Source information:
Trypanosomatid snoRNA TB6Cs1H1: a 68-nucleotide RNA sequence from Leishmania infantum. On this family, see Liang et al., RNA 2005: "A genome-wide analysis of C/D and H/ACA-like small nucleolar RNAs in Trypanosoma brucei reveals a trypanosome-specific pattern of rRNA modification". It is one of the family's seed sequences. Pairs were carried over by alignment from the consensus structure, which was predicted with WAR. Rfam 15.1 lists 100 matches to the family in 21 species. Taxonomically the source falls in Leishmania infantum (Eukaryota, Metakinetoplastina, Leishmaniinae, Leishmania).
RNA sequence: AGGUCAGCGAAAACACAGUCGAAGUGGUAUUGACCCCGUCAUUUCGCCUGCACCUGUGCUGUCCGAGA
Numbered sequence: 001a002g003g004u005c006a007g008c009g010a011a012a013a014c015a016c017a018g019u020c021g022a023a024g025u026g027g028u029a030u031u032g033a034c035c036c037c038g039u040c041a042u043u044u045c046g047c048c049u050g051c052a053c054c055u056g057u058g059c060u061g062u063c064c065g066a067g068a
Stems, first nucleotide, its partner, number of pairs: 002064002005061005016050003020046003025041002